[Rfam]
RNA sequence: CAAAUGCCCACCUGGAUGUCGAUCUGAGUCAUAGGAUCUGCGAAUAUGACUAGAGACACAUUCAGCUGGGCGAAUGC
Numbered sequence: 001c002a003a004a005u006g007c008c009c010a011c012c013u014g015g016a017u018g019u020c021g022a023u024c025u026g027a028g029u030c031a032u033a034g035g036a037u038c039u040g041c042g043a044a045u046a047u048g049a050c051u052a053g054a055g056a057c058a059c060a061u062u063c064a065g066c067u068g069g070g071c072g073a074a075u076g077c
Stems, first nucleotide, its partner, number of pairs: 005072005012065008023055001027051007
The record is a 77-nucleotide RNA sequence from Teladorsagia circumcincta, which matches "mir-44 microRNA precursor family" in Rfam. Pairs were carried over by alignment from the consensus structure, which was predicted with RNAalifold. The match comes from Rfam's covariance-model search (59 bits).